[Rfam]
Shown here is a 406-nucleotide part of an RNA from a Candidatus Aenigmatarchaeota archaeon, a member of the family "Archaeal small subunit ribosomal RNA". Lineage of the source: Archaea > Nanobdellati > Candidatus Aenigmatarchaeota. On this family, see Cannone et al., BMC Bioinformatics 2002: "The comparative RNA web (CRW) site: an online database of comparative sequence and structure information for ribosomal, intron, and other RNAs". It scores 1293 bits against the family's covariance model.
RNA sequence: GGCUUAAAGCGUUCGUAGCCGGUUCUGCAAGUUCCUGGUGAAAUCAGCCGGUAAACCGGUUGGCUUGCUGGGAAUACUACAGGACUUGGGACCGGGAGAGGUCGAGGGUACUGUUAGGGUAGGGGUAAAAAGCGAUUGUUGACUUGAAUUAUUCCGAAUAAGUCAACCUUCCUUACAUUCCUAUAAUCCUAUCAGGACCACCUGUGGCGAAGGCGCUCGACUAGAACGGAUCCGACGGUGAGGGACGAAAGCCAGGGGAGCGAAUGGGAUUAGAUACCCCAGUAGUCCUGGCUGUAAACGAUACCCACUAGACAUUGGGGAUCUUACGUGGGUUUCCAGUGUCGAAGGAAAACCGCUAAGUGGGUCGCCUGGGGAGUACGGUCGCAAGGCUGAAACUUAAGGGAAU
Numbered sequence: 001g002g003c004u005u006a007a008a009g010c011g012u013u014c015g016u017a018g019c020c021g022g023u024u025c026u027g028c029a030a031g032u033u034c035c036u037g038g039u040g041a042a043a044u045c046a047g048c049c050g051g052u053a054a055a056c057c058g059g060u061u062g063g064c065u066u067g068c069u070g071g072g073a074a075u076a077c078u079a080c081a082g083g084a085c086u087u088g089g090g091a092c093c094g095g096g097a098g099a100g101g102u103c104g105a106g107g108g109u110a111c112u113g114u115u116a117g118g119g120u121a122g123g124g125g126u127a128a129a130a131a132g133c134g135a136u137u138g139u140u141g142a143c144u145u146g147a148a149u150u151a152u153u154c155c156g157a158a159u160a161a162g163u164c165a166a167c168c169u170u171c172c173u174u175a176c177a178u179u180c181c182u183a184u185a186a187u188c189c190u191a192u193c194a195g196g197a198c199c200a201c202c203u204g205u206g207g208c209g210a211a212g213g214c215g216c217u218c219g220a221c222u223a224g225a226a227c228g229g230a231u232c233c234g235a236c237g238g239u240g241a242g243g244g245a246c247g248a249a250a251g252c253c254a255g256g257g258g259a260g261c262g263a264a265u266g267g268g269a270u271u272a273g274a275u276a277c278c279c280c281a282g283u284a285g286u287c288c289u290g291g292c293u294g295u296a297a298a299c300g301a302u303a304c305c306c307a308c309u310a311g312a313c314a315u316u317g318g319g320g321a322u323c324u325u326a327c328g329u330g331g332g333u334u335u336c337c338a339g340u341g342u343c344g345a346a347g348g349a350a351a352a353c354c355g356c357u358a359a360g361u362g363g364g365u366c367g368c369c370u371g372g373g374g375a376g377u378a379c380g381g382u383c384g385c386a387a388g389g390c391u392g393a394a395a396c397u398u399a400a401g402g403g404a405a406u
Stems, first nucleotide, its partner, number of pairs: 001369003009366001011246004016240001018239003022085006030078002032074009045062007089233003092229003100222007107199002111195003115191004122181005207214002251292006260286002265281004303365006311343014347354002371398003380391004